[Rfam]
RNA sequence: AUAUAGAAGUGUAAAAACACAAUUGGGUUGGUAGUCCCAAUGCAGUUUUAAAACUGUCAGUAACCUUCCUCCUCGGGUCGUCCGUCAUUUCUAAUAAAACU
Numbered sequence: 001a002u003a004u005a006g007a008a009g010u011g012u013a014a015a016a017a018c019a020c021a022a023u024u025g026g027g028u029u030g031g032u033a034g035u036c037c038c039a040a041u042g043c044a045g046u047u048u049u050a051a052a053a054c055u056g057u058c059a060g061u062a063a064c065c066u067u068c069c070u071c072c073u074c075g076g077g078u079c080g081u082c083c084g085u086c087a088u089u090u091c092u093a094a095u096a097a098a099a100c101u
Base pairs, nucleotide, nucleotide: 004093005092006091007090008089009088010087011086022041023040024039025038026037027036042057043056044055045054046053047052068077069076070075
RNA: azaaromatic riboswitch aptamer (yjdF RNA)